[Rfam]
U11 spliceosomal RNA: a 141-nucleotide RNA from Pelodiscus sinensis.
RNA sequence: AACUAGGGCUUCUGUCAUGUAUGGCACAUGAACUGGGGCAGCUGUGGCUUUUCCUGCUUCAUGCAGAAUCAACAUCAAAAGAUUGCAGAAGCAUAAUUUUUACUCCUGGGGUUGCUAGUAAUGGUUGAUUCCACUUCUCCC
Numbered sequence: 001a002a003c004u005a006g007g008g009c010u011u012c013u014g015u016c017a018u019g020u021a022u023g024g025c026a027c028a029u030g031a032a033c034u035g036g037g038g039c040a041g042c043u044g045u046g047g048c049u050u051u052u053c054c055u056g057c058u059u060c061a062u063g064c065a066g067a068a069u070c071a072a073c074a075u076c077a078a079a080a081g082a083u084u085g086c087a088g089a090a091g092c093a094u095a096a097u098u099u100u101u102a103c104u105c106c107u108g109g110g111g112u113u114g115c116u117a118g119u120a121a122u123g124g125u126u127g128a129u130u131c132c133a134c135u136u137c138u139c140c141c
Base pairs, nucleotide, nucleotide: 008092009091010090011089012088013026014025015024016023017022027063028062029061030060031059032058034056035055036054037053038052067084068083069082070081109139110138111137114135116133118131120130121129122128
Rfam classes the family as a spliceosomal small nuclear RNA. The family has 72 seed sequences and 2,595 matches in Rfam 15.1.